Shown here is a 68-nucleotide RNA sequence from Bombyx mori, a member of the family "mir-2774 microRNA precursor family". The family's consensus secondary structure was predicted with RNAalifold. Rfam links the family to the GO terms miRNA-mediated post-transcriptional gene silencing and RISC complex.
RNA sequence: ACAACAAUUCGGACCGUCGGUCUACCGAGCAAAAUCACCCGCUCGGUGAAAAAUCUCGUCUUUGCCAU
Dot-bracket structure: ....((....(....((...(.((((((((..........)))))))).)..))....)...))....